RNA sequence: AUGGCGAAUGCCUGACGGACUACAUGGACUCGGUAUCCCCAGGUCGCGGGUUCGAAUCCCGCCGGGCCGGCCAAUCGGCCCGUAGCUCAGCGGAUAGAGCGGGUAGGCGUCCGUCGAAAUCCUCGUCGCCAUGAU
Numbered sequence: 001a002u003g004g005c006g007a008a009u010g011c012c013u014g015a016c017g018g019a020c021u022a023c024a025u026g027g028a029c030u031c032g033g034u035a036u037c038c039c040c041a042g043g044u045c046g047c048g049g050g051u052u053c054g055a056a057u058c059c060c061g062c063c064g065g066g067c068c069g070g071c072c073a074a075u076c077g078g079c080c081c082g083u084a085g086c087u088c089a090g091c092g093g094a095u096a097g098a099g100c101g102g103g104u105a106g107g108c109g110u111c112c113g114u115c116g117a118a119a120u121c122c123u124c125g126u127c128g129c130c131a132u133g134a135u
Base pairs, nucleotide, nucleotide: 002131003130004129005128006127007126013116014115015114016113017112018111019110039103040102046062047061048060049059050058063082064081065080066079067078068077069076070075085100086099087098088097
The record is a 135-nucleotide sequence from Sphingomonas sanxanigenens, which matches "Y RNA-like" in Rfam. Rfam describes the family as follows. In Deinococcus radiodurans Rsr is tethered via Y RNA to the exoribonuclease PNPase and channels single-stranded RNA into the PNPase cavity. The family's RNA type in Rfam is small RNA. For this family Rfam cites "An RNA degradation machine sculpted by Ro autoantigen and noncoding RNA" (Chen et al., Cell, 2013). Rfam 15.1 lists 124 matches to the family in 99 species.